[Rfam]
RNA sequence: AAAAAGGGUCGGUUGGCUAAAUAUGCCACUCUCGCCCUUGGUGGUGAGUGCUGUAUGGCUAUCAAGACAUAUGGCCGACAUAAUUUGUGGAACCCACAAAAGGGUUGGCCCCCAAUUGGCCGACCCUCCA
Numbered sequence: 001a002a003a004a005a006g007g008g009u010c011g012g013u014u015g016g017c018u019a020a021a022u023a024u025g026c027c028a029c030u031c032u033c034g035c036c037c038u039u040g041g042u043g044g045u046g047a048g049u050g051c052u053g054u055a056u057g058g059c060u061a062u063c064a065a066g067a068c069a070u071a072u073g074g075c076c077g078a079c080a081u082a083a084u085u086u087g088u089g090g091a092a093c094c095c096a097c098a099a100a101a102g103g104g105u106u107g108g109c110c111c112c113c114a115a116u117u118g119g120c121c122g123a124c125c126c127u128c129c130a
Base pairs, nucleotide, nucleotide: 008079009078010077011076012075014028015027016026017025029050031048032047033046034045035044036043051074052073053072054071055070056069057068101127102126103125104124105123106122107121108120111119112118
Annotation: Shown here is a 130-nucleotide RNA from Capsicum baccatum, a member of the family "U11 spliceosomal RNA". The match comes from Rfam's covariance-model search (72 bits). The family has 72 seed sequences and 2,595 matches in Rfam 15.1. Gene Ontology terms of the family: mRNA 5'-splice site recognition, U11 snRNP and pre-mRNA 5'-splice site binding. By type it is a spliceosomal small nuclear RNA. Clan: U1 clan. Lineage of the source: Eukaryota > Streptophytina > asterids > Capsiceae > Capsicum.